[Rfam]
RNA sequence: CCGUACAGCCGGGGAGUUAGCGGUGCCCUGAACCUGCAAUCCGCUAUAGCAGGGGUGAUGGCUGGCCUCGGGUUGAAUACUGUAGGGCUGCCCUCGGUAAGUGAUGUUGAUAUCUGGGUCUUACGCGACAGAAAUCUAUGAACCGUGUCAGGUUGGGAACAAAGCAGCACUAAGUAGAAACUUCUGGGUGACGUGAGGUUGCCUGGAUUGAGUUAACUGCUGAGGUAACGCCUAUUGGUUCAUCACAAAGCCAGCCGUGCGG
Number, nucleotide and partner (000 for none) at each position: 001c262002c261003g260004u259005a258006c257007a000008g056009c055010c054011g029012g028013g027014g026015a000016g024017u023018u022019a000020g000021c000022g018023g017024u016025g000026c014027c013028c012029u011030g000031a000032a000033c053034c052035u051036g050037c049038a000039a000040u000041c000042c000043g000044c000045u000046a000047u000048a000049g037050c036051a035052g034053g033054g010055g009056u008057g000058a000059u000060g000061g000062c254063u253064g252065g251066c250067c000068u248069c000070g246071g000072g244073u000074u242075g241076a000077a240078u000079a000080c237081u000082g235083u234084a233085g232086g231087g000088c000089u227090g226091c000092c000093c224094u223095c222096g221097g220098u219099a000100a000101g217102u216103g214104a213105u212106g000107u000108u000109g000110a000111u000112a208113u207114c206115u205116g204117g203118g202119u201120c197121u196122u195123a194124c193125g192126c188127g000128a000129c186130a185131g184132a183133a182134a000135u178136c177137u176138a175139u174140g000141a000142a000143c000144c000145g170146u169147g168148u167149c000150a000151g000152g000153u162154u161155g160156g000157g000158a000159a000160c155161a154162a153163a000164g000165c000166a000167g148168c147169a146170c145171u000172a000173a000174g139175u138176a137177g136178a135179a000180a000181c000182u133183u132184c131185u130186g129187g000188g126189u000190g000191a000192c125193g124194u123195g122196a121197g120198g000199u000200u000201g119202c118203c117204u116205g115206g114207a113208u112209u000210g000211a000212g105213u104214u103215a000216a102217c101218u000219g098220c097221u096222g095223a094224g093225g000226u090227a089228a000229c000230g000231c086232c085233u084234a083235u082236u000237g080238g000239u000240u077241c075242a074243u000244c072245a000246c070247a000248a068249a000250g066251c065252c064253a063254g062255c000256c000257g006258u005259g004260c003261g002262g001
RNA: Bacterial large signal recognition particle RNA
Organism: Eubacterium ruminantium